[Rfam]
RNA sequence: GUGGGACUCAAACUGUGGGGGCACUUUCUGUGCUGAGAGCAAGUGCCGCCACUGUUUGAGCUCCAC
Numbered sequence: 001g002u003g004g005g006a007c008u009c010a011a012a013c014u015g016u017g018g019g020g021g022c023a024c025u026u027u028c029u030g031u032g033c034u035g036a037g038a039g040c041a042a043g044u045g046c047c048g049c050c051a052c053u054g055u056u057u058g059a060g061c062u063c064c065a066c
Stems, first nucleotide, its partner, number of pairs: 004063002007060006015052004020047007028039001
Description:
This 66-nucleotide RNA from Myotis myotis belongs to the Rfam family "mir-290 microRNA precursor family". Pairs were carried over by alignment from the consensus structure, which was predicted with RNAalifold. Clan: mir-290 clan. Lineage of the source: Eukaryota > Opisthokonta > Eumetazoa > Craniata > Myotis.